Background:
Rfam assigns this 86-nucleotide RNA sequence from Dipodomys ordii to the family "Small nucleolar RNA SNORD70". Rfam's curators write: snoRNA HBII-234 belongs to the C/D family of snoRNAs. It is the human orthologue of the mouse MBII-234 and is predicted to guide 2'O-ribose methylation of the small 18S rRNA on position A512. It is hosted, together with HBII-95, by the core C/D box snoRNA protein encoding gene NOP5/NOP58.

[Rfam]
RNA sequence: UCAAUGUUGUCAAUGAUGCAUUCUCAUUAAAAACUGAAUUUAAGUGAUAACAACUCAUUCGUCACUACCACUGAGACAACAUUUGA
Number, nucleotide and partner (000 for none) at each position: 001u086002c085003a083004a082005u081006g080007u079008u078009g077010u076011c075012a000013a000014u000015g000016a000017u000018g000019c000020a000021u000022u000023c000024u000025c000026a000027u000028u000029a000030a000031a000032a000033a000034c000035u000036g000037a000038a000039u000040u000041u000042a000043a000044g000045u000046g000047a000048u000049a000050a000051c000052a000053a000054c000055u000056c000057a000058u000059u000060c000061g000062u000063c000064a000065c000066u000067a000068c000069c000070a000071c000072u000073g000074a000075g011076a010077c009078a008079a007080c006081a005082u004083u003084u000085g002086a001